A member of the RNA family "Small nucleolar RNA SNORD113/SNORD114 family" from Bos grunniens, 71 nucleotides long.
The family's RNA type in Rfam is C/D-box small nucleolar RNA.
Clan: SNORD74 clan.
A search with the family's covariance model found it, with a score of 52 bits.
The source organism's lineage runs through Eukaryota, Euteleostomi, Bovidae, Bovinae and Bos.
A reference for the family is Cavaille et al. (2002), "Identification of tandemly-repeated C/D snoRNA genes at the imprinted human 14q32 domain reminiscent of those at the Prader-Willi/Angelman syndrome region", Hum Mol Genet.
The imprinted human domain at 14q32 contains two clusters of tandemly repeated small nucleolar RNAs named 14q(I) and 14q(II) snoRNAs. These two clusters are named SNORD113 and SNORD114 respectively in the HGNC approved gene symbol nomenclature. The snoRNAs found in both clusters are clearly related and are represented here by a single family. These snoRNAs are intron encoded and are processed from the tissue-specific non-coding human MEG8 RNA, which lies downstream of the imprinted genes DLK1 and GTL2. snoRNAs 14q(I) and 14q(II) differ from previously identified C/D box snoRNAs in their expression profiles and lack of complementarity to rRNA and snRNA. Homologues of these snoRNAs are found in the imprinted non-coding mouse transcript Rian, and in the rat non-coding Bsr (brain-specific repetitive) RNA.
RNA sequence: CGGACCAAUGAUGAUGAUCGCUUCGGUAGAGUCCUGAACGAUGAAAACAUGUCUGAAACUCUGAGGUCCAA
Numbered sequence: 001c002g003g004a005c006c007a008a009u010g011a012u013g014a015u016g017a018u019c020g021c022u023u024c025g026g027u028a029g030a031g032u033c034c035u036g037a038a039c040g041a042u043g044a045a046a047a048c049a050u051g052u053c054u055g056a057a058a059c060u061c062u063g064a065g066g067u068c069c070a071a
Base pairs, nucleotide, nucleotide: 002069003068004067005066006065